Rfam assigns this 62-nucleotide RNA sequence from Bos mutus to the family "U7 small nuclear RNA".
[Rfam]
RNA sequence: CAGUGUUAAAGCUCUUAUAGAAUUUGUCUAGCAGGUUUUCCAGUCUGCACCAGAAAACUCCA
Numbered sequence: 001c002a003g004u005g006u007u008a009a010a011g012c013u014c015u016u017a018u019a020g021a022a023u024u025u026g027u028c029u030a031g032c033a034g035g036u037u038u039u040c041c042a043g044u045c046u047g048c049a050c051c052a053g054a055a056a057a058c059u060c061c062a
Stems, first nucleotide, its partner, number of pairs: 034059007043050002

Pairs were carried over by alignment from the consensus structure, which was predicted with PFOLD. About the family: Animal histone pre-mRNAs are spliced by a different mechanism than nuclear pre-mRNAs and self-splicing introns. This processing involves the U7 snRNP, which contains only one RNA species: U7. The 5' end of U7 RNA is thought to base-pair to a conserved spacer element downstream of the cleavage site in histone pre-mRNA. This family contains a number of annotated U7 pseudogenes.